[Rfam]
RNA sequence: CGUGGUCCUCGGUAGUGGUCUCCGGAGCCCCGCAGGAGCGGGUGCUCCGUGGAUCUCGAUCGAAGACCAGG
Numbered sequence: 001c002g003u004g005g006u007c008c009u010c011g012g013u014a015g016u017g018g019u020c021u022c023c024g025g026a027g028c029c030c031c032g033c034a035g036g037a038g039c040g041g042g043u044g045c046u047c048c049g050u051g052g053a054u055c056u057c058g059a060u061c062g063a064a065g066a067c068c069a070g071g
Base pairs, nucleotide, nucleotide: 001071003069004068005067006066007065009063010062011061012060013059017055018054019053020052021051023049024048025047026046027045028044
Rfam assigns this 71-nucleotide sequence from Arthrobacter echini to the family "Actino-pnp RNA".
The family's consensus secondary structure is taken from published work.
A search with the family's covariance model found it, with a score of 61 bits.